[Rfam]
RNA sequence: UCAAUGUGGACAACCACUGGGGGAAUCACUCAGUGGCUCUGUUUGAGUGGUGUAAAGGAGCACAGCAUUCUGGUGCAAUGAUGUAUAAUCCUGUUCCACGACAUUGGAGAUCAAGCUUGUCCCCAGUCUUGAGACUGAUGAGGGCAUGGUCCUGUAUAUUCCUUAUCUUUUCAGUAUUUGGUUGCUGAGGAGAAAAACCAUACAGGGUACAGUU
Numbered sequence: 001u002c003a004a005u006g007u008g009g010a011c012a013a014c015c016a017c018u019g020g021g022g023g024a025a026u027c028a029c030u031c032a033g034u035g036g037c038u039c040u041g042u043u044u045g046a047g048u049g050g051u052g053u054a055a056a057g058g059a060g061c062a063c064a065g066c067a068u069u070c071u072g073g074u075g076c077a078a079u080g081a082u083g084u085a086u087a088a089u090c091c092u093g094u095u096c097c098a099c100g101a102c103a104u105u106g107g108a109g110a111u112c113a114a115g116c117u118u119g120u121c122c123c124c125a126g127u128c129u130u131g132a133g134a135c136u137g138a139u140g141a142g143g144g145c146a147u148g149g150u151c152c153u154g155u156a157u158a159u160u161c162c163u164u165a166u167c168u169u170u171u172c173a174g175u176a177u178u179u180g181g182u183u184g185c186u187g188a189g190g191a192g193a194a195a196a197a198c199c200a201u202a203c204a205g206g207g208u209a210c211a212g213u214u
Stems, first nucleotide, its partner, number of pairs: 001107007008044005014036003019030002022027001047099004056092004060086001062084003065079001151206007167192006